[Rfam]
RNA: hya RNA
Organism: Rhodococcus (subgen. Prescottella) equi
RNA sequence: GGCGUCACGCAAGUGGGCCGAGGGUCGACUCCGGUGACGCAGGGGCGGUGCGCCCCGGGGAGUGGCCG
Numbered sequence: 001g002g003c004g005u006c007a008c009g010c011a012a013g014u015g016g017g018c019c020g021a022g023g024g025u026c027g028a029c030u031c032c033g034g035u036g037a038c039g040c041a042g043g044g045g046c047g048g049u050g051c052g053c054c055c056c057g058g059g060g061a062g063u064g065g066c067c068g
Base pairs, nucleotide, nucleotide: 003039004038005037006036007035008034042056043055044054045053046052